RNA sequence: CUCGUCGGGAGGCUGAACUGACUCGUCGAAGCAAAGCGCUGGCCCGACAAACAGGGAGCGGAUAAGAAGCGGCUCAUCGGGGCGCGGUGGCGCAAAGCGUCAAAGCCCGGUACUUGCGGGGAACAAUGCGGCGCAGUCCCGACAGGCACGAGCGUAGAGGCGGGUGCG
Numbered sequence: 001c002u003c004g005u006c007g008g009g010a011g012g013c014u015g016a017a018c019u020g021a022c023u024c025g026u027c028g029a030a031g032c033a034a035a036g037c038g039c040u041g042g043c044c045c046g047a048c049a050a051a052c053a054g055g056g057a058g059c060g061g062a063u064a065a066g067a068a069g070c071g072g073c074u075c076a077u078c079g080g081g082g083c084g085c086g087g088u089g090g091c092g093c094a095a096a097g098c099g100u101c102a103a104a105g106c107c108c109g110g111u112a113c114u115u116g117c118g119g120g121g122a123a124c125a126a127u128g129c130g131g132c133g134c135a136g137u138c139c140c141g142a143c144a145g146g147c148a149c150g151a152g153c154g155u156a157g158a159g160g161c162g163g164g165u166g167c168g
Base pairs, nucleotide, nucleotide: 022168024166025165026164031161032160036155037154038153039152040151042147043146044145046143059141060140061139069134070133071132073130075128076127077126079124080108081107082106083105086101087100088099089098